This 74-nucleotide RNA from Myotis lucifugus belongs to the Rfam family "mir-9193 microRNA precursor family". The base pairs follow the family's consensus structure, which was predicted with RNAalifold. Rfam links the family to the GO terms RISC complex and miRNA-mediated post-transcriptional gene silencing. Lineage of the source: Eukaryota > Opisthokonta > Euteleostomi > Dipnotetrapodomorpha > Myotis.
RNA sequence: CUCGGGGGUGGGGGGUCCCUCAACCCGGAUUGUGAGAGGGCACAGGCCAGGCCUAGGGACCCUACCAGUUCAGG
Numbered sequence: 001c002u003c004g005g006g007g008g009u010g011g012g013g014g015g016u017c018c019c020u021c022a023a024c025c026c027g028g029a030u031u032g033u034g035a036g037a038g039g040g041c042a043c044a045g046g047c048c049a050g051g052c053c054u055a056g057g058g059a060c061c062c063u064a065c066c067a068g069u070u071c072a073g074g
Base pairs, nucleotide, nucleotide: 004071006069010065012063013062014061015060016059017058018057019056020055024051025050027048028047030045031044032043033042034041
Background
Rfam 15.1 lists 6,008 matches to the family in 8 species.